[Rfam]
RNA sequence: GCAAUAUCAAUUUCUCGCGCAAGAACCGCACCGUGUUCCUGUCCAUGCUGGGCAACUCGUGGUUCUGGUUCUACGGCGCGCUGGUGCUGUCGCAGUUCCCGGUGUUCGCCAAGGAUUACCUG
Numbered sequence: 001g002c003a004a005u006a007u008c009a010a011u012u013u014c015u016c017g018c019g020c021a022a023g024a025a026c027c028g029c030a031c032c033g034u035g036u037u038c039c040u041g042u043c044c045a046u047g048c049u050g051g052g053c054a055a056c057u058c059g060u061g062g063u064u065c066u067g068g069u070u071c072u073a074c075g076g077c078g079c080g081c082u083g084g085u086g087c088u089g090u091c092g093c094a095g096u097u098c099c100c101g102g103u104g105u106u107c108g109c110c111a112a113g114g115a116u117u118a119c120c121u122g
Base pairs, nucleotide, nucleotide: 010049012047017042018041019040022037023036025034026033051121052120055117057115058114060112062110064104067099068098071095072094074092075091076090077089078088080087081086
Dot-bracket structure: .........(.(....(((..((.((......)).))..)))....).).((..(.((.(.(.(..((..((.(((((.((....))))))).))..))....).....).).)).)..)).